[Rfam]
Shown here is a 108-nucleotide sequence from Meridianimarinicoccus roseus, a member of the family "Guanidine-I riboswitch aptamer". The organism belongs to Meridianimarinicoccus, within Bacteria. From the family's description: This family represents a conserved RNA structure found upstream of the ykkC and yxkD genes in Bacillus subtilis and related genes in other bacteria. The function of this family is unclear although it has been suggested that it may function to switch on efflux pumps and detoxification systems in response to harmful environmental molecules.

RNA sequence: GGGCAGGGCACUUAGGGUUCCGCUUCCGCAAGGAAGGUCAGGUCCGAGAAGGGCCGCCGCGUCGGCAAAUUCCGGGGCGGUACACGGCGGGCCAAAAUCCCGGGAGAU
Numbered sequence: 001g002g003g004c005a006g007g008g009c010a011c012u013u014a015g016g017g018u019u020c021c022g023c024u025u026c027c028g029c030a031a032g033g034a035a036g037g038u039c040a041g042g043u044c045c046g047a048g049a050a051g052g053g054c055c056g057c058c059g060c061g062u063c064g065g066c067a068a069a070u071u072c073c074g075g076g077g078c079g080g081u082a083c084a085c086g087g088c089g090g091g092c093c094a095a096a097a098u099c100c101c102g103g104g105a106g107a108u
Stems, first nucleotide, its partner, number of pairs: 007055003011051002015045002020042002022039001023036005056081005062075004083103001085106001089101003